A member of the RNA family "RNase MRP" from Coemansia spiralis, 500 nucleotides long. RNase MRP is an enzymatically active ribonucleoprotein with two distinct roles in eukaryotes.
RNA sequence: UAUAUUCACUUGUUUUCAAAGCCUCACACACAGAGUAGCUCUGUCUACUCAUAUCAUGGCUUUGGGGAAAGUCCCCGGACACAAGGGCAGAAAGUGCCGCCUGUAAUUAGGUAUUGGUAUCCCGACUAUUGCACUCCAAGAGCUUGUCUGACCUGCGUUUAGGUGGUCUAGGCAUUUAUGCCUCUACUUGUGUUGUUUUGCUUAUCAUUCUACAUCGUCUUCCUUCCUUGGAGGGUUGGCGGGGAACAAAGAUGCUUCGGAAGAGUUCCUGCGAGUUUGAGCCUAUGGCAUUCGACCUUUUAUACCUUGUGUAUUUAGCCGCAAGGCAGUAGUCAGAGACUGUCUCUGGGAUUGCUUUUUCGCUGCCGUGUUGGAUGGGCUUUUGGGGUGUAUGGGGUGCUUGUUCGUCAUAGCACAGUUUUGCGGUUGGCUGACUACACACUCUCCUUUGGGAUUGCUGUGUGGAAAGUUACCUCAACGGGGCUCACUACUCCAGGUAU
Numbered sequence: 001u002a003u004a005u006u007c008a009c010u011u012g013u014u015u016u017c018a019a020a021g022c023c024u025c026a027c028a029c030a031c032a033g034a035g036u037a038g039c040u041c042u043g044u045c046u047a048c049u050c051a052u053a054u055c056a057u058g059g060c061u062u063u064g065g066g067g068a069a070a071g072u073c074c075c076c077g078g079a080c081a082c083a084a085g086g087g088c089a090g091a092a093a094g095u096g097c098c099g100c101c102u103g104u105a106a107u108u109a110g111g112u113a114u115u116g117g118u119a120u121c122c123c124g125a126c127u128a129u130u131g132c133a134c135u136c137c138a139a140g141a142g143c144u145u146g147u148c149u150g151a152c153c154u155g156c157g158u159u160u161a162g163g164u165g166g167u168c169u170a171g172g173c174a175u176u177u178a179u180g181c182c183u184c185u186a187c188u189u190g191u192g193u194u195g196u197u198u199u200g201c202u203u204a205u206c207a208u209u210c211u212a213c214a215u216c217g218u219c220u221u222c223c224u225u226c227c228u229u230g231g232a233g234g235g236u237u238g239g240c241g242g243g244g245a246a247c248a249a250a251g252a253u254g255c256u257u258c259g260g261a262a263g264a265g266u267u268c269c270u271g272c273g274a275g276u277u278u279g280a281g282c283c284u285a286u287g288g289c290a291u292u293c294g295a296c297c298u299u300u301u302a303u304a305c306c307u308u309g310u311g312u313a314u315u316u317a318g319c320c321g322c323a324a325g326g327c328a329g330u331a332g333u334c335a336g337a338g339a340c341u342g343u344c345u346c347u348g349g350g351a352u353u354g355c356u357u358u359u360u361c362g363c364u365g366c367c368g369u370g371u372u373g374g375a376u377g378g379g380c381u382u383u384u385g386g387g388g389u390g391u392a393u394g395g396g397g398u399g400c401u402u403g404u405u406c407g408u409c410a411u412a413g414c415a416c417a418g419u420u421u422u423g424c425g426g427u428u429g430g431c432u433g434a435c436u437a438c439a440c441a442c443u444c445u446c447c448u449u450u451g452g453g454a455u456u457g458c459u460g461u462g463u464g465g466a467a468a469g470u471u472a473c474c475u476c477a478a479c480g481g482g483g484c485u486c487a488c489u490a491c492u493c494c495a496g497g498u499a500u
Stems, first nucleotide, its partner, number of pairs: 002500005008428001010426004016065007033050006070485002073483004086098004099118003103114002305388004317381003366374003430470003435465007
Record summary: A search with the family's covariance model found it, with a score of 80 bits. It is annotated as a ribozyme. The literature on the family includes a 1993 paper in FASEB J by Schmitt et al., "Secondary structure of RNase MRP RNA as predicted by phylogenetic comparison". The family has 66 seed sequences and 3,510 matches in Rfam 15.1.